[Rfam]
RNA sequence: GAGUUAUACAAAGCGCCAGAGCUUGCAACAUUGCAGCGCGGAUUCACCCAACGGACCUUCCGCUCCGAAGCGGGAGAGGUCAGAUGAGCGGCUUUAUGAGCCGCGCUCCGACAGAUAGCCAUAGGCGGCCAGAGGGCCAUAGCCGAAGCUUGACGGAGCGAUCGUUUCGCAAGGAACGAUUGAGCCUGACUACCGAAGCGCUGACGCAAGCUGACGAGGUGAAGGUGUUCGAAAUUUCGGCGGGGACCUUCCGGUGAGCAUGUCAUCGACAGCCAUUACUGCAAAAGGACGCGGGCAACCGGUCCCACAAACAGAUGGCAAGCAUGCUG
Numbered sequence: 001g002a003g004u005u006a007u008a009c010a011a012a013g014c015g016c017c018a019g020a021g022c023u024u025g026c027a028a029c030a031u032u033g034c035a036g037c038g039c040g041g042a043u044u045c046a047c048c049c050a051a052c053g054g055a056c057c058u059u060c061c062g063c064u065c066c067g068a069a070g071c072g073g074g075a076g077a078g079g080u081c082a083g084a085u086g087a088g089c090g091g092c093u094u095u096a097u098g099a100g101c102c103g104c105g106c107u108c109c110g111a112c113a114g115a116u117a118g119c120c121a122u123a124g125g126c127g128g129c130c131a132g133a134g135g136g137c138c139a140u141a142g143c144c145g146a147a148g149c150u151u152g153a154c155g156g157a158g159c160g161a162u163c164g165u166u167u168c169g170c171a172a173g174g175a176a177c178g179a180u181u182g183a184g185c186c187u188g189a190c191u192a193c194c195g196a197a198g199c200g201c202u203g204a205c206g207c208a209a210g211c212u213g214a215c216g217a218g219g220u221g222a223a224g225g226u227g228u229u230c231g232a233a234a235u236u237u238c239g240g241c242g243g244g245g246a247c248c249u250u251c252c253g254g255u256g257a258g259c260a261u262g263u264c265a266u267c268g269a270c271a272g273c274c275a276u277u278a279c280u281g282c283a284a285a286a287g288g289a290c291g292c293g294g295g296c297a298a299c300c301g302g303u304c305c306c307a308c309a310a311a312c313a314g315a316u317g318g319c320a321a322g323c324a325u326g327c328u329g
Stems, first nucleotide, its partner, number of pairs: 020212007029203001221251005229240004252268006272319006287305004292301003
Background:
The record is a 329-nucleotide RNA sequence from Paenibacillaceae bacterium GAS479, which matches "glmS glucosamine-6-phosphate activated ribozyme aptamer" in Rfam. By type it is a riboswitch. The source organism's lineage runs through Bacteria, Bacillati, Bacillota, Caryophanales and Paenibacillaceae. The base pairs follow the family's consensus structure, which is taken from published work.